[Rfam]
RNA sequence: GAGGGUAGGUCCCUCGGUAUCGCCUUGCAGGAGGGGAUACCAAACCACCUUAAGCGGCUGAGGACAAAAUCCUCGGUCGUGAGCGUUAAGGAAAAGGCGCUAUUGAAAGCGUCAGGU
Numbered sequence: 001g002a003g004g005g006u007a008g009g010u011c012c013c014u015c016g017g018u019a020u021c022g023c024c025u026u027g028c029a030g031g032a033g034g035g036g037a038u039a040c041c042a043a044a045c046c047a048c049c050u051u052a053a054g055c056g057g058c059u060g061a062g063g064a065c066a067a068a069a070u071c072c073u074c075g076g077u078c079g080u081g082a083g084c085g086u087u088a089a090g091g092a093a094a095a096g097g098c099g100c101u102a103u104u105g106a107a108a109g110c111g112u113c114a115g116g117u
Base pairs, nucleotide, nucleotide: 001015002014003013004012005011016041017040018039019038020037021036023034024033025032026031046116048091049090050089051088052087053086054080055079057077058076059075061073062072063071064070096113097112098111099110100109101108
The record is a 117-nucleotide sequence from Candidatus Glomeribacter gigasporarum, which matches "Group II catalytic intron D1-D4-2" in Rfam.
On this family, see Bonen and Vogel, Trends Genet 2001: "The ins and outs of group II introns".
The organism belongs to Candidatus Glomeribacter gigasporarum, within Bacteria.
It scores 117 bits against the family's covariance model.
About the family: Group II introns are found in rRNA, tRNA and mRNA of organelles in fungi, plants and protists, and also in mRNA in bacteria.